[Rfam]
RNA sequence: CCCCCCGAUACUACCCGCAGGUAGACCUCAGCAGAGAUGUUGGGCGAGGUAGAGCGACCGAAUAGUUGGUUAGCUGAUGAAAAUCAGCGUCGACUUAUCGAACUCCGAACUUGUCCAAAUCGUAGAAGCUGGGUGCUAGGGUACAGGGAUAAGCUCUGUACCCGUGAAGGGAACAUCCUAGACGAGGGUUAAGGUCCCUAAAACUAACUAAGUGCAAAUUAAAGAGGUUAAUGGCCUAAGACAGUGUGGAGGUAGGCUUAGAAGCAGCCAUCCUUCAAAGAGUGCGUAACAGCUCACUCACCGAGGCUAUUUGCCUCGAAGAUGGAAGGGGCUAAAGUUAGUUACCGAGACCUUCGAGCACCGAAAGGUGAUCUGGUAGGGGGGCGUGCCAUUUGGGCGGAAGCUUCUUCGAGAGGAGGAGUGGACCGAAUGGCAUCGCGGAU
Numbered sequence: 001c002c003c004c005c006c007g008a009u010a011c012u013a014c015c016c017g018c019a020g021g022u023a024g025a026c027c028u029c030a031g032c033a034g035a036g037a038u039g040u041u042g043g044g045c046g047a048g049g050u051a052g053a054g055c056g057a058c059c060g061a062a063u064a065g066u067u068g069g070u071u072a073g074c075u076g077a078u079g080a081a082a083a084u085c086a087g088c089g090u091c092g093a094c095u096u097a098u099c100g101a102a103c104u105c106c107g108a109a110c111u112u113g114u115c116c117a118a119a120u121c122g123u124a125g126a127a128g129c130u131g132g133g134u135g136c137u138a139g140g141g142u143a144c145a146g147g148g149a150u151a152a153g154c155u156c157u158g159u160a161c162c163c164g165u166g167a168a169g170g171g172a173a174c175a176u177c178c179u180a181g182a183c184g185a186g187g188g189u190u191a192a193g194g195u196c197c198c199u200a201a202a203a204c205u206a207a208c209u210a211a212g213u214g215c216a217a218a219u220u221a222a223a224g225a226g227g228u229u230a231a232u233g234g235c236c237u238a239a240g241a242c243a244g245u246g247u248g249g250a251g252g253u254a255g256g257c258u259u260a261g262a263a264g265c266a267g268c269c270a271u272c273c274u275u276c277a278a279a280g281a282g283u284g285c286g287u288a289a290c291a292g293c294u295c296a297c298u299c300a301c302c303g304a305g306g307c308u309a310u311u312u313g314c315c316u317c318g319a320a321g322a323u324g325g326a327a328g329g330g331g332c333u334a335a336a337g338u339u340a341g342u343u344a345c346c347g348a349g350a351c352c353u354u355c356g357a358g359c360a361c362c363g364a365a366a367g368g369u370g371a372u373c374u375g376g377u378a379g380g381g382g383g384g385c386g387u388g389c390c391a392u393u394u395g396g397g398c399g400g401a402a403g404c405u406u407c408u409u410c411g412a413g414a415g416g417a418g419g420a421g422u423g424g425a426c427c428g429a430a431u432g433g434c435a436u437c438g439c440g441g442a443u
Stems, first nucleotide, its partner, number of pairs: 001384006011024005026135001027133006036121003040118008052106001053104002060099002064095006073088006139163009168179003183356007193346003202343007224317005230311007244301003248297001250274003255269003275279001280295001284293002357374002359370004385438001387435010403422008

A member of the RNA family "Archaeal large subunit ribosomal RNA" from Thermoplasmatales archaeon Gpl, 443 nucleotides of a longer RNA. NCBI's taxonomy places the organism under Archaea, Methanobacteriati, Thermoplasmatota, Thermoplasmata, Thermoplasmatales. It is one of the family's seed sequences.